[Rfam]
RNA: c-di-AMP riboswitch aptamer (ydaO/yuaA leader)
Organism: Nocardioides anomalus
RNA sequence: CGUCGAGCUCCGCCGAGUCUUCGGACGAGGUGGGGGCCGGGGAACCACUCGCCGUCGCCAGACGGCACCUGGGGUGAGUCCCCAGCGAGGGCGCCACGACCGCGAGGCCGGGGUGAGGGAGCUGGGGUAGGGCCACGUCGUGCCCGAACCCGUCAGCUCACCCGGUAGGCGUACGACACCCAAGGA
Numbered sequence: 001c002g003u004c005g006a007g008c009u010c011c012g013c014c015g016a017g018u019c020u021u022c023g024g025a026c027g028a029g030g031u032g033g034g035g036g037c038c039g040g041g042g043a044a045c046c047a048c049u050c051g052c053c054g055u056c057g058c059c060a061g062a063c064g065g066c067a068c069c070u071g072g073g074g075u076g077a078g079u080c081c082c083c084a085g086c087g088a089g090g091g092c093g094c095c096a097c098g099a100c101c102g103c104g105a106g107g108c109c110g111g112g113g114u115g116a117g118g119g120a121g122c123u124g125g126g127g128u129a130g131g132g133c134c135a136c137g138u139c140g141u142g143c144c145c146g147a148a149c150c151c152g153u154c155a156g157c158u159c160a161c162c163c164g165g166u167a168g169g170c171g172u173a174c175g176a177c178a179c180c181c182a183a184g185g186a
Stems, first nucleotide, its partner, number of pairs: 011171004018035003036166006046071002072151003080127007130145004